[Rfam]
RNA sequence: GUGGCUUCAUAAAAAUUGAAUGAGGAUUUGCUGAAACUGAUUAGUAUCGGCAAGUUUUGAUGGAAUGAAGCCUACAAAAAUUGUUUCCCUCGCUAUCCGGUGUUAUUCUCAAUGUUGCAUUUGGACGUUGGGAAACUACAUCA
Numbered sequence: 001g002u003g004g005c006u007u008c009a010u011a012a013a014a015a016u017u018g019a020a021u022g023a024g025g026a027u028u029u030g031c032u033g034a035a036a037c038u039g040a041u042u043a044g045u046a047u048c049g050g051c052a053a054g055u056u057u058u059g060a061u062g063g064a065a066u067g068a069a070g071c072c073u074a075c076a077a078a079a080a081u082u083g084u085u086u087c088c089c090u091c092g093c094u095a096u097c098c099g100g101u102g103u104u105a106u107u108c109u110c111a112a113u114g115u116u117g118c119a120u121u122u123g124g125a126c127g128u129u130g131g132g133a134a135a136c137u138a139c140a141u142c143a
Stems, first nucleotide, its partner, number of pairs: 001075002003072003008067003016060002019057002026055008036047001083136007091127002096125005104114002
Description:
A member of the RNA family "Small nucleolar RNA snoR136" from Cynara cardunculus, 143 nucleotides long. Its family is annotated with nucleolus and RNA processing in the Gene Ontology. The base pairs follow the family's consensus structure, which was predicted with mfold. For this family Rfam cites "Mining small RNA sequencing data: a new approach to identify small nucleolar RNAs in Arabidopsis" (Chen and Wu, Nucleic Acids Res, 2009). The family's RNA type in Rfam is H/ACA-box small nucleolar RNA. The match comes from Rfam's covariance-model search (84 bits).